[Rfam]
RNA: transfer-messenger RNA
Organism: Bergeyella cardium
RNA sequence: GGGGUUGACUGGUUUCGACAGCAAGACCAAUGGGUAAGUAAGCACGCAGAGAACCGUAGCGCGAUCUCUAUAAUCCCUUGCUACAAAUUUUAACUGGCAAUGAAGAGUAUGCUCUUGCUGCUUAAUCUGAAGUAUAGUAGGAUAAGCGUUUUUCCCGAAGUAGAGUAAGGAAACAAGAUGUCUCACGGAAGCUCCGUUCUGCGGCGUCCGAGUAUGAGGCAUAGGAAAUGCAGAAAUAAGCCUUUGGAGGCUUCGGCUAAAGGACGAAAACCCGAGAAGAUAAGCUGUAAAUUGAGUGUCUGUUCUCUGUUUGCAGACGAAAACUAAAAACAGAAUAAGCGUGUAGAAAGCUUAUGUAUUGCUUGUUUGGACGAGGGUUCGAAUCCCUCCAACUCCACAA
Number, nucleotide and partner (000 for none) at each position: 001g396002g395003g394004g393005u392006u391007g390008a000009c000010u000011g000012g000013u000014u000015u000016c000017g000018a000019c369020a368021g366022c365023a364024a363025g362026a000027c000028c000029a000030a359031u358032g357033g000034g355035u354036a353037a352038g351039u350040a000041a000042g000043c343044a342045c341046g340047c339048a069049g068050a067051g066052a065053a000054c000055c000056g084057u083058a082059g081060c080061g079062c000063g000064a000065u052066c051067u050068c049069u048070a000071u000072a000073a000074u000075c000076c000077c000078u000079u061080g060081c059082u058083a057084c056085a000086a000087a000088u000089u000090u000091u000092a000093a000094c000095u000096g000097g000098c000099a000100a000101u000102g000103a000104a000105g000106a000107g000108u000109a000110u000111g000112c000113u000114c000115u000116u000117g000118c000119u000120g000121c000122u000123u000124a000125a000126u000127c000128u000129g000130a000131a000132g000133u000134a000135u000136a000137g000138u000139a000140g000141g000142a000143u000144a000145a000146g000147c000148g000149u000150u000151u000152u000153u000154c000155c000156c000157g000158a000159a000160g000161u000162a000163g000164a000165g000166u000167a000168a000169g000170g000171a000172a000173a000174c000175a000176a000177g000178a000179u221180g220181u219182c218183u217184c216185a000186c210187g209188g208189a207190a000191g000192c000193u203194c000195c000196g000197u235198u234199c233200u232201g231202c000203g193204g000205c000206g000207u189208c188209c187210g186211a000212g000213u000214a000215u000216g184217a183218g182219g181220c180221a179222u000223a000224g000225g000226a000227a000228a000229u000230g000231c201232a200233g199234a198235a197236a000237u000238a000239a000240g000241c263242c262243u261244u260245u259246g000247g000248a000249g281250g000251c279252u278253u277254c276255g000256g000257c000258u000259a245260a244261a243262g242263g241264a000265c000266g000267a000268a000269a000270a000271c000272c000273c000274g000275a000276g254277a253278a252279g251280a000281u249282a000283a000284g000285c316286u315287g314288u313289a312290a311291a310292u309293u000294g307295a306296g305297u000298g000299u334300c333301u332302g331303u330304u329305c296306u295307c294308u000309g292310u291311u290312u289313g288314c287315a286316g285317a000318c000319g000320a000321a000322a000323a000324c000325u000326a000327a000328a000329a304330a303331c302332a301333g300334a299335a000336u000337a000338a000339g047340c046341g045342u044343g043344u000345a000346g000347a000348a000349a000350g039351c038352u037353u036354a035355u034356g000357u032358a031359u030360u000361g000362c025363u024364u023365g022366u021367u000368u020369g019370g000371a000372c000373g389374a388375g387376g386377g385378u000379u000380c000381g000382a000383a000384u000385c377386c376387c375388u374389c373390c007391a006392a005393c004394u003395c002396c001397a000398c000399a000400a000